The family of this 133-nucleotide RNA from Myotis myotis is "U11 spliceosomal RNA". Rfam 15.1 lists 2,595 matches to the family in 1,202 species.
RNA sequence: AAGAAGGGCUUCUGUCAUGCAUGGCACACGCAGAGCAGCCUGACUGCUCCACAUGCAGAGUGAACACCAAGAGAUUCGGAAGCAUAAUUUUUUGGUACUUGGGCAGCGGGUGAUCAUUGGUCCUGGAACCCAC
Numbered sequence: 001a002a003g004a005a006g007g008g009c010u011u012c013u014g015u016c017a018u019g020c021a022u023g024g025c026a027c028a029c030g031c032a033g034a035g036c037a038g039c040c041u042g043a044c045u046g047c048u049c050c051a052c053a054u055g056c057a058g059a060g061u062g063a064a065c066a067c068c069a070a071g072a073g074a075u076u077c078g079g080a081a082g083c084a085u086a087a088u089u090u091u092u093u094g095g096u097a098c099u100u101g102g103g104c105a106g107c108g109g110g111u112g113a114u115c116a117u118u119g120g121u122c123c124u125g126g127a128a129c130c131c132a133c
Stems, first nucleotide, its partner, number of pairs: 008083005013026005027055002030052001033049006056078001058077004101131003107126001109124002112122004
Taxonomically the source falls in Myotis (Eukaryota, Metazoa, Eumetazoa, Amniota). A search with the family's covariance model found it, with a score of 74 bits. The base pairs follow the family's consensus structure, which is taken from published work. The family's RNA type in Rfam is spliceosomal small nuclear RNA.